Shown here is a 158-nucleotide RNA sequence from Camelus dromedarius, a member of the family "U1 spliceosomal RNA". Rfam links the family to the GO terms mRNA 5'-splice site recognition, pre-mRNA 5'-splice site binding and U1 snRNP. U1 is a small nuclear RNA (snRNA) component of the spliceosome (involved in pre-mRNA splicing). Its 5' end forms complementary base pairs with the 5' splice junction, thus defining the 5' donor site of an intron. There are significant differences in sequence and secondary structure between metazoan and yeast U1 snRNAs, the latter being much longer (568 nucleotides as compared to 164 nucleotides in human). Nevertheless, secondary structure predictions suggest that all U1 snRNAs share a 'common core' consisting of helices I, II, the proximal region of III, and IV. This family does not contain the larger yeast sequences. The literature on the family includes a 1997 paper in Nucleic Acids Res by Zwieb, "The uRNA database".
RNA sequence: AACCUUACCUGGCAGGGGAGAUACCAUGAUCAUGAAGGUGGUUUUCCCAGGGCGAGGCUUAUCCAUUGCACUCCGGAUGUGCUGACUCCUGCGAUUUCCCCAAGUAUGGGAAACCCAUAAUUUGUAGUAGUUGGGGACUGCGUUCGCACUUUCCCCUA
Dot-bracket structure: ...........(..(((((((.(((((..........)))))))))))((((.(.(((.(((((..........))))).)))..)))))....(((.((.......)).))).))................(((((..(.(....).)..)))))..
Numbered sequence: 001a002a003c004c005u006u007a008c009c010u011g012g013c014a015g016g017g018g019a020g021a022u023a024c025c026a027u028g029a030u031c032a033u034g035a036a037g038g039u040g041g042u043u044u045u046c047c048c049a050g051g052g053c054g055a056g057g058c059u060u061a062u063c064c065a066u067u068g069c070a071c072u073c074c075g076g077a078u079g080u081g082c083u084g085a086c087u088c089c090u091g092c093g094a095u096u097u098c099c100c101c102a103a104g105u106a107u108g109g110g111a112a113a114c115c116c117a118u119a120a121u122u123u124g125u126a127g128u129a130g131u132u133g134g135g136g137a138c139u140g141c142g143u144u145c146g147c148a149c150u151u152u153c154c155c156c157u158a
Stems, first nucleotide, its partner, number of pairs: 012116001015115001016048006023042005049090004054086001056083003060079005095113003099109002133156005140149001142147001